[Rfam]
RNA sequence: AAUAGGAGAAUGACAAAUCAUUUUUUUUUCCUGAUUUUCAGCUUUUUUCUCUUCAAAAAAUUCACAUUUAACAAAAACUACUAAAAGUCAGGAAAAAAAAUUUGAUUUAUCAUUUUCUUAUU
Numbered sequence: 001a002a003u004a005g006g007a008g009a010a011u012g013a014c015a016a017a018u019c020a021u022u023u024u025u026u027u028u029u030c031c032u033g034a035u036u037u038u039c040a041g042c043u044u045u046u047u048u049c050u051c052u053u054c055a056a057a058a059a060a061u062u063c064a065c066a067u068u069u070a071a072c073a074a075a076a077a078c079u080a081c082u083a084a085a086a087g088u089c090a091g092g093a094a095a096a097a098a099a100a101u102u103u104g105a106u107u108u109a110u111c112a113u114u115u116u117c118u119u120a121u122u
Stems, first nucleotide, its partner, number of pairs: 001122013015108006023100005028094011040082002045077003